[Rfam]
RNA sequence: AGGCCUGGAGAGCAAAGCAGGGUCUGAUCUGCAGCCUCCAUGGCAGCUGUUGAUCAGCCCUUGCCUCUCUUUCUCUCUA
Numbered sequence: 001a002g003g004c005c006u007g008g009a010g011a012g013c014a015a016a017g018c019a020g021g022g023u024c025u026g027a028u029c030u031g032c033a034g035c036c037u038c039c040a041u042g043g044c045a046g047c048u049g050u051u052g053a054u055c056a057g058c059c060c061u062u063g064c065c066u067c068u069c070u071u072u073c074u075c076u077c078u079a
Stems, first nucleotide, its partner, number of pairs: 008071005015066001017064004022059001024057006032049004
This 79-nucleotide RNA from Myotis brandtii belongs to the Rfam family "mir-574 microRNA precursor family". Rfam links the family to the GO terms miRNA-mediated post-transcriptional gene silencing and RISC complex. It scores 86 bits against the family's covariance model.